[Rfam]
RNA sequence: AUGAGGUGACGAUAUAAUUCAUGUCUGUCAAUCCACUGAAUACAUUUUUAUGAUGUAAAAAGUGAAUCCCGACAGGUUCUGAUCAU
Numbered sequence: 001a002u003g004a005g006g007u008g009a010c011g012a013u014a015u016a017a018u019u020c021a022u023g024u025c026u027g028u029c030a031a032u033c034c035a036c037u038g039a040a041u042a043c044a045u046u047u048u049u050a051u052g053a054u055g056u057a058a059a060a061a062g063u064g065a066a067u068c069c070c071g072a073c074a075g076g077u078u079c080u081g082a083u084c085a086u
Stems, first nucleotide, its partner, number of pairs: 001086004
RNA: Small nucleolar RNA snoR14